RNA sequence: AAACGAUCCUAAUAUCUCUCAGGGCCUUGAAUAAGACCCAGUAAACAAUUUUUGGAAACCAUAUUCCUCUGGAGUAGGGUG
Numbered sequence: 001a002a003a004c005g006a007u008c009c010u011a012a013u014a015u016c017u018c019u020c021a022g023g024g025c026c027u028u029g030a031a032u033a034a035g036a037c038c039c040a041g042u043a044a045a046c047a048a049u050u051u052u053u054g055g056a057a058a059c060c061a062u063a064u065u066c067c068u069c070u071g072g073a074g075u076a077g078g079g080u081g
Stems, first nucleotide, its partner, number of pairs: 022039003026035003058080003062076005

Rfam assigns this 81-nucleotide RNA sequence from Caenorhabditis brenneri to the family "SmY spliceosomal RNA". The base pairs follow the family's consensus structure, which is taken from published work. The literature on the family includes a 2007 paper in BMC Mol Biol by Jia et al., "Systematic identification of non-coding RNA 2,2,7-trimethylguanosine cap structures in Caenorhabditis elegans".